[Rfam]
Saccharopolyspora sRNA 350: a 509-nucleotide sequence from Streptomyces poonensis. Rfam links the family to the GO term regulation of secondary metabolite biosynthetic process. By type it is an antisense RNA.
RNA sequence: CGGGCGGUGUGCUCCCAGACGGCGUCCGGCUCCAGGAGCGCGUGGUCCCCGAAGUGUGCUCCGUCGGCGAGGACCCCGAGGACCGCGUCGUCCCCGUAGGGGCCGGUGCCGACCUUCUCCACCUUGCCGUGGGCGAGCAGGAACACCUCCUCCGCCGGGCUGCCGAACUCGGCGAGCACGGCCCCGGGCUGGAACUCCCGCUGUUCGCAGCGCCGGGCGAGCUCGCUCAGCACCUCCUCGUCCUCGUACCCCCGCAGGGGCGGCAGUUCGCCGAGCUCGGCGGGGAUCACGGUGACCUGGUCACCGGUCUUCACGAAGGUGAUGCGGCCGUCGCCGACCGCGUAGCUGAGCCGCCUGUUCACCCGGUACGUGCCGCCCUGCACGUCGACCCAGGGCAGCAUGCGGAGGAGCCAGCGCGAGCUGAUCUCCUGCAUCUGGGGCACGGACUUGGUGGUCGUGGCCAGGUUCCGUGCGGCAGCGGUGCCGAGACUCUGCUGCGGUUUCUCCUG
Numbered sequence: 001c002g003g004g005c006g007g008u009g010u011g012c013u014c015c016c017a018g019a020c021g022g023c024g025u026c027c028g029g030c031u032c033c034a035g036g037a038g039c040g041c042g043u044g045g046u047c048c049c050c051g052a053a054g055u056g057u058g059c060u061c062c063g064u065c066g067g068c069g070a071g072g073a074c075c076c077c078g079a080g081g082a083c084c085g086c087g088u089c090g091u092c093c094c095c096g097u098a099g100g101g102g103c104c105g106g107u108g109c110c111g112a113c114c115u116u117c118u119c120c121a122c123c124u125u126g127c128c129g130u131g132g133g134c135g136a137g138c139a140g141g142a143a144c145a146c147c148u149c150c151u152c153c154g155c156c157g158g159g160c161u162g163c164c165g166a167a168c169u170c171g172g173c174g175a176g177c178a179c180g181g182c183c184c185c186g187g188g189c190u191g192g193a194a195c196u197c198c199c200g201c202u203g204u205u206c207g208c209a210g211c212g213c214c215g216g217g218c219g220a221g222c223u224c225g226c227u228c229a230g231c232a233c234c235u236c237c238u239c240g241u242c243c244u245c246g247u248a249c250c251c252c253c254g255c256a257g258g259g260g261c262g263g264c265a266g267u268u269c270g271c272c273g274a275g276c277u278c279g280g281c282g283g284g285g286a287u288c289a290c291g292g293u294g295a296c297c298u299g300g301u302c303a304c305c306g307g308u309c310u311u312c313a314c315g316a317a318g319g320u321g322a323u324g325c326g327g328c329c330g331u332c333g334c335c336g337a338c339c340g341c342g343u344a345g346c347u348g349a350g351c352c353g354c355c356u357g358u359u360c361a362c363c364c365g366g367u368a369c370g371u372g373c374c375g376c377c378c379u380g381c382a383c384g385u386c387g388a389c390c391c392a393g394g395g396c397a398g399c400a401u402g403c404g405g406a407g408g409a410g411c412c413a414g415c416g417c418g419a420g421c422u423g424a425u426c427u428c429c430u431g432c433a434u435c436u437g438g439g440g441c442a443c444g445g446a447c448u449u450g451g452u453g454g455u456c457g458u459g460g461c462c463a464g465g466u467u468c469c470g471u472g473c474g475g476c477a478g479c480g481g482u483g484c485c486g487a488g489a490c491u492c493u494g495c496u497g498c499g500g501u502u503u504c505u506c507c508u509g
Stems, first nucleotide, its partner, number of pairs: 006390003011385002016380001018328001022325002027321002030318001031316002036312003040308002045304002049300002051297001054233002057230001062225002065111004072103001074102004079097001080093004118221001120219001122217002126213002130209001132206002136202002140198002143196001149192002154189003158185002161178002234294001236292002240290002244286002249283002252280003256277002260271003329342003353377001355375001357373001360372003391431005397425001399423002403418002407415001437476001440473001442471005447465006477508002480503002484499001487496002